[Rfam]
RNA sequence: GGCUCGUUGGUGUAGGGGUAUGAUUCUUGCUUUGGGUGCAAGAGGUCCUGGGUUCGAUUCCCAGACGAGCCC
Numbered sequence: 001g002g003c004u005c006g007u008u009g010g011u012g013u014a015g016g017g018g019u020a021u022g023a024u025u026c027u028u029g030c031u032u033u034g035g036g037u038g039c040a041a042g043a044g045g046u047c048c049u050g051g052g053u054u055c056g057a058u059u060c061c062c063a064g065a066c067g068a069g070c071c072c
Base pairs, nucleotide, nucleotide: 001071002070003069004068005067006066007065010024011023026042027041028040029039030038048064049063050062051061052060
RNA: tRNA
Organism: Chaetops frenatus